RNA sequence: CUGCAGGACCUGCCUUGACGGGGUGUGGCAAGCUCUUUAGACUUUUGUACCCCUAAAUUUGGCGGGACCUUGGUCCUGCCAUUUUGUUUAUGUCGAAAGACAACAGUGGAGCUAUAGA
Numbered sequence: 001c002u003g004c005a006g007g008a009c010c011u012g013c014c015u016u017g018a019c020g021g022g023g024u025g026u027g028g029c030a031a032g033c034u035c036u037u038u039a040g041a042c043u044u045u046u047g048u049a050c051c052c053c054u055a056a057a058u059u060u061g062g063c064g065g066g067a068c069c070u071u072g073g074u075c076c077u078g079c080c081a082u083u084u085u086g087u088u089u090a091u092g093u094c095g096a097a098a099g100a101c102a103a104c105a106g107u108g109g110a111g112c113u114a115u116a117g118a
Stems, first nucleotide, its partner, number of pairs: 004017004021052003025048004030043001033040002060081009092101003
Annotation:
Rfam assigns this 118-nucleotide sequence from Zestomonas carbonaria to the family "Pseudomonas rpsL leader". By type it is a cis-regulatory leader. Its family is annotated with regulation of gene expression in the Gene Ontology. A reference for the family is Naville and Gautheret (2010), "Premature terminator analysis sheds light on a hidden world of bacterial transcriptional attenuation", Genome Biol. The base pairs follow the family's consensus structure, which is taken from published work. The organism belongs to Zestomonas, within Bacteria.